[Rfam]
RNA sequence: GUGGCUGGACGUAUAGUCGGGAAACCCUUCAUGGAUCUUUUACCGUCUGGUAGAACAAGUGCUCUUAAGCAUUUGCAGUCA
Numbered sequence: 001g002u003g004g005c006u007g008g009a010c011g012u013a014u015a016g017u018c019g020g021g022a023a024a025c026c027c028u029u030c031a032u033g034g035a036u037c038u039u040u041u042a043c044c045g046u047c048u049g050g051u052a053g054a055a056c057a058a059g060u061g062c063u064c065u066u067a068a069g070c071a072u073u074u075g076c077a078g079u080c081a
Stems, first nucleotide, its partner, number of pairs: 038055007057074006
RNA: RAGATH-32 RNA